[Rfam]
RNA sequence: AGUUAAAAUUUUCACUCAAUUCUACUGCUAAAAAUUGGCAUAGUUAACGGAAUAACCACAAAUUAUACGUGGCGUGCAACGUGUACCUCAUGUCGACGUACAGGGACUAGUUUUUAAUAGUAAAAACUGAUGAAAAUUUUAACA
Number, nucleotide and partner (000 for none) at each position: 001a000002g143003u142004u141005a140006a139007a138008a137009u136010u135011u134012u133013c132014a131015c000016u129017c000018a000019a000020u125021u124022c000023u122024a121025c120026u119027g000028c000029u116030a115031a114032a113033a112034a000035u000036u000037g000038g000039c000040a000041u000042a000043g000044u000045u000046a000047a000048c000049g000050g000051a000052a000053u000054a000055a000056c000057c000058a000059c000060a000061a000062a000063u000064u000065a000066u000067a000068c000069g000070u000071g000072g000073c000074g000075u000076g000077c000078a000079a000080c000081g000082u000083g000084u000085a000086c000087c000088u000089c000090a000091u000092g000093u000094c000095g000096a000097c000098g000099u000100a000101c000102a000103g000104g000105g000106a000107c000108u000109a000110g000111u000112u033113u032114u031115u030116a029117a000118u000119a026120g025121u024122a023123a000124a021125a020126a000127c000128u000129g016130a000131u014132g013133a012134a011135a010136a009137u008138u007139u006140u005141a004142a003143c002144a000